[Rfam]
RNA sequence: AGAAUGCUGAGGGCGGAACAGGCAGCCGCCACCCAUUGUUAGGAGAUGUAGGAAUCGUCACCCUACCUCAUUCU
Numbered sequence: 001a002g003a004a005u006g007c008u009g010a011g012g013g014c015g016g017a018a019c020a021g022g023c024a025g026c027c028g029c030c031a032c033c034c035a036u037u038g039u040u041a042g043g044a045g046a047u048g049u050a051g052g053a054a055u056c057g058u059c060a061c062c063c064u065a066c067c068u069c070a071u072u073c074u
Stems, first nucleotide, its partner, number of pairs: 001074006009067001012030005021059003032043001033038001048066005